[Rfam]
RNA sequence: UGCAGCAUACAAUUGAAACAAUGAACACAUUUUUAAAUACUAAUUGGUGGUGGAGCAACUUACGUCAGACGUCGUGAGCAAAACCUCCUAUAUGAAUUUUUAAAAACCAUAUAUAAAAGGCUUGUC
Numbered sequence: 001u002g003c004a005g006c007a008u009a010c011a012a013u014u015g016a017a018a019c020a021a022u023g024a025a026c027a028c029a030u031u032u033u034u035a036a037a038u039a040c041u042a043a044u045u046g047g048u049g050g051u052g053g054a055g056c057a058a059c060u061u062a063c064g065u066c067a068g069a070c071g072u073c074g075u076g077a078g079c080a081a082a083a084c085c086u087c088c089u090a091u092a093u094g095a096a097u098u099u100u101u102a103a104a105a106a107c108c109a110u111a112u113a114u115a116a117a118a119g120g121c122u123u124g125u126c
Base pairs, nucleotide, nucleotide: 036098037097038096040094043091044090046088047087049085050084051083059078060077061076062072063071064070
The record is a 126-nucleotide RNA sequence from Flavobacterium humi, which matches "Bacteroidete tryptophan peptide leader RNA" in Rfam.
It is annotated as a cis-regulatory leader.
Taxonomically the source falls in Flavobacterium (Bacteria, Bacteroidota, Flavobacteriales, Flavobacteriaceae).
It scores 69 bits against the family's covariance model.